[Rfam]
RNA: Small nucleolar RNA snoR111
RNA sequence: UAAAGAGUGGGGAGACGGUAUAUAAUAUUGUCUCUUCAUAGGGAAGAAUAAUGAGGUACGUCAAAUUCAAAGGCAGAGAUAUCGUUUCAGUCGUCAUUUCUCCAUUGACGGUCUGAUUGUUGCUCGUCCACAU
Numbered sequence: 001u002a003a004a005g006a007g008u009g010g011g012g013a014g015a016c017g018g019u020a021u022a023u024a025a026u027a028u029u030g031u032c033u034c035u036u037c038a039u040a041g042g043g044a045a046g047a048a049u050a051a052u053g054a055g056g057u058a059c060g061u062c063a064a065a066u067u068c069a070a071a072g073g074c075a076g077a078g079a080u081a082u083c084g085u086u087u088c089a090g091u092c093g094u095c096a097u098u099u100c101u102c103c104a105u106u107g108a109c110g111g112u113c114u115g116a117u118u119g120u121u122g123c124u125c126g127u128c129c130a131c132a133u
Stems, first nucleotide, its partner, number of pairs: 007039011072129002076125003081117004090112007098104001